[Rfam]
RNA: SAM riboswitch aptamer (S box leader)
RNA sequence: UUCUUAUGAUGAGAGGCGGAGGGACUGGCCCUUUGAAGCCUCGGCAGCGGACUCAGAUGAUGAGUACUGUGCCAAUUCCAGCAGGCGUUUGCCUGAGAGAUAAGAA
Numbered sequence: 001u002u003c004u005u006a007u008g009a010u011g012a013g014a015g016g017c018g019g020a021g022g023g024a025c026u027g028g029c030c031c032u033u034u035g036a037a038g039c040c041u042c043g044g045c046a047g048c049g050g051a052c053u054c055a056g057a058u059g060a061u062g063a064g065u066a067c068u069g070u071g072c073c074a075a076u077u078c079c080a081g082c083a084g085g086c087g088u089u090u091g092c093c094u095g096a097g098a099g100a101u102a103a104g105a106a
Stems, first nucleotide, its partner, number of pairs: 001106007013042005021031003025081004043073004048069002051065004077098001082095005